[Rfam]
RNA sequence: UAGACAGAUUUUUGUAUUCGACUGUAUUCACGGCGUAAAUAGCGCAAUUCAUGGUCUAUUCAGCUGUUUUUAAAUGGAAAGUGAAUCAAUUAACAUAAUAGACUCCU
Number, nucleotide and partner (000 for none) at each position: 001u000002a000003g105004a104005c000006a000007g000008a000009u101010u100011u000012u098013u097014g096015u095016a000017u093018u092019c000020g091021a090022c000023u088024g087025u000026a086027u085028u084029c083030a082031c081032g000033g000034c076035g075036u074037a069038a068039a067040u066041a065042g064043c063044g000045c000046a000047a000048u000049u000050c000051a000052u000053g000054g000055u000056c000057u000058a000059u000060u000061c000062a000063g043064c042065u041066g040067u039068u038069u037070u000071u000072a000073a000074a036075u035076g034077g000078a000079a000080a000081g031082u030083g029084a028085a027086u026087c024088a023089a000090u021091u020092a018093a017094c000095a015096u014097a013098a012099u000100a010101g009102a000103c000104u004105c003106c000107u000
The family of this 107-nucleotide RNA from Nicotiana attenuata is "MIR6152 microRNA precursor family".
Rfam links the family to the GO terms RISC complex and miRNA-mediated post-transcriptional gene silencing.